mir-9195 microRNA precursor family: an 87-nucleotide RNA from Cnephaeus nilssonii. The match comes from Rfam's covariance-model search (94 bits).
[Rfam]
RNA sequence: AGAGGCUCUCUGCAGCCAGGGUGGAACGCUUGCCUUGUCACCGUGGGGACAAAGCAAGCAUUCCGCCAGGCCGCUCAUGUUGCCUGC
Numbered sequence: 001a002g003a004g005g006c007u008c009u010c011u012g013c014a015g016c017c018a019g020g021g022u023g024g025a026a027c028g029c030u031u032g033c034c035u036u037g038u039c040a041c042c043g044u045g046g047g048g049a050c051a052a053a054g055c056a057a058g059c060a061u062u063c064c065g066c067c068a069g070g071c072c073g074c075u076c077a078u079g080u081u082g083c084c085u086g087c
Base pairs, nucleotide, nucleotide: 004084005083006082012074013073015071016070017069020067021066022065023064024063025062026061028059029058030057031056032055033054037050038049039048041046
Lineage of the source: Eukaryota > Chordata > Dipnotetrapodomorpha > Mammalia > Cnephaeus.
Its family is annotated with miRNA-mediated post-transcriptional gene silencing and RISC complex in the Gene Ontology.